[Rfam]
RNA sequence: UAAGCCAGAAGAGGUGCGUCGCCCAGGUAAAAUGUCGGAGGAGCCGUUAUCCGCUGAGGGCAUUCAAGGGGGAGCGACGCCGAGACGUGAUGACUUCGGCUAUCACCACGUCGACUACAGGGGCUGAAUCUCCUGGGUUGUCACCCGAUACCGCUCACAUUGAGCGAUUAGCAAGGUGGAGCGCUUCUGGGUGU
Numbered sequence: 001u002a003a004g005c006c007a008g009a010a011g012a013g014g015u016g017c018g019u020c021g022c023c024c025a026g027g028u029a030a031a032a033u034g035u036c037g038g039a040g041g042a043g044c045c046g047u048u049a050u051c052c053g054c055u056g057a058g059g060g061c062a063u064u065c066a067a068g069g070g071g072g073a074g075c076g077a078c079g080c081c082g083a084g085a086c087g088u089g090a091u092g093a094c095u096u097c098g099g100c101u102a103u104c105a106c107c108a109c110g111u112c113g114a115c116u117a118c119a120g121g122g123g124c125u126g127a128a129u130c131u132c133c134u135g136g137g138u139u140g141u142c143a144c145c146c147g148a149u150a151c152c153g154c155u156c157a158c159a160u161u162g163a164g165c166g167a168u169u170a171g172c173a174a175g176g177u178g179g180a181g182c183g184c185u186u187c188u189g190g191g192u193g194u
Base pairs, nucleotide, nucleotide: 006189007188008187009186010185011184016080017079018078019077020076021075022074024072031064032063033062034061035060036059084112085111086110087109088108089107091105092104093103113139114138115137116136118135119134120133121132122131123130141179142178143177144176145175
A member of the RNA family "Lysine riboswitch aptamer" from Yersinia ruckeri, 194 nucleotides long. The literature on the family includes a 2003 paper in Nucleic Acids Res by Rodionov et al., "Regulation of lysine biosynthesis and transport genes in bacteria: yet another RNA riboswitch?". A search with the family's covariance model found it, with a score of 97 bits. Rfam describes the family as follows. Riboswitches are metabolite binding domains within certain messenger RNAs that serve as precision sensors for their corresponding targets.